[Rfam]
RNA sequence: AAGCAACACUCUGUGGCAGAUAGCCAGUUGCCUGUCUCAAUUUAAGCUUGCUAUAAUAAAAAAGUCUAACCUAUUCCAGUGGUCUCUGCUAAAUGAGGUCAUGUGUUAUAUAGACUCUAACAAC
Numbered sequence: 001a002a003g004c005a006a007c008a009c010u011c012u013g014u015g016g017c018a019g020a021u022a023g024c025c026a027g028u029u030g031c032c033u034g035u036c037u038c039a040a041u042u043u044a045a046g047c048u049u050g051c052u053a054u055a056a057u058a059a060a061a062a063a064g065u066c067u068a069a070c071c072u073a074u075u076c077c078a079g080u081g082g083u084c085u086c087u088g089c090u091a092a093a094u095g096a097g098g099u100c101a102u103g104u105g106u107u108a109u110a111u112a113g114a115c116u117c118u119a120a121c122a123a124c
Stems, first nucleotide, its partner, number of pairs: 009046002012039002015036001017034003021030002063116006072110003077105002085098003